[Rfam]
RNA sequence: AUGUAGAGUAAUAAGAAUCCCCAUAUAUUCUGAGGAAUUGGCCUCAGUGUUUCUACUAGGGCACCGUAAUGCCUGGACUAUGAGGGAAAGCGAAUUCUCU
Numbered sequence: 001a002u003g004u005a006g007a008g009u010a011a012u013a014a015g016a017a018u019c020c021c022c023a024u025a026u027a028u029u030c031u032g033a034g035g036a037a038u039u040g041g042c043c044u045c046a047g048u049g050u051u052u053c054u055a056c057u058a059g060g061g062c063a064c065c066g067u068a069a070u071g072c073c074u075g076g077a078c079u080a081u082g083a084g085g086g087a088a089a090g091c092g093a094a095u096u097c098u099c100u
Stems, first nucleotide, its partner, number of pairs: 018086003022082004030047006057076001059074005
Rfam assigns this 100-nucleotide sequence from Sporosarcina limicola to the family "Purine riboswitch aptamer". Rfam describes the family as follows. Riboswitches are metabolite binding domains within certain messenger RNAs that serve as precision sensors for their corresponding targets. Allosteric rearrangement of mRNA structure is mediated by ligand binding, and this results in modulation of gene expression. A class of riboswitches that selectively recognises guanine and becomes saturated at concentrations as low as 5 nM. In Bacillus subtilis, this mRNA motif is located on at least five separate transcriptional units that together encode 17 genes that are mostly involved in purine transport and purine nucleotide biosynthesis. It has also been shown that some members of this family are specific for adenine instead. The source organism's lineage runs through Bacteria, Bacillati, Bacilli, Caryophanaceae and Sporosarcina.